The family of this 111-nucleotide sequence from Kroppenstedtia eburnea is "TPP riboswitch aptamer (THI element)".
RNA sequence: UGCAUAUUCCACGGGAGCUUGGAGAAGCCAGGCUGAGAGGGCGGGAACUCUACGCCGACCGUUUAACCUGAUCUGGGUAAUGCCAGCGUAGGAAAUCAACGGGGUCACAGG
Numbered sequence: 001u002g003c004a005u006a007u008u009c010c011a012c013g014g015g016a017g018c019u020u021g022g023a024g025a026a027g028c029c030a031g032g033c034u035g036a037g038a039g040g041g042c043g044g045g046a047a048c049u050c051u052a053c054g055c056c057g058a059c060c061g062u063u064u065a066a067c068c069u070g071a072u073c074u075g076g077g078u079a080a081u082g083c084c085a086g087c088g089u090a091g092g093a094a095a096u097c098a099a100c101g102g103g104g105u106c107a108c109a110g111g
Base pairs, nucleotide, nucleotide: 007098011062012061013060014059017033018032019031020030021029040056041055042054043053067092068091069090070089073086074085075084076083
The base pairs follow the family's consensus structure, which is taken from published work. Taxonomically the source falls in Kroppenstedtia (Bacteria, Bacillati, Bacilli, Thermoactinomycetaceae). The match comes from Rfam's covariance-model search (55 bits).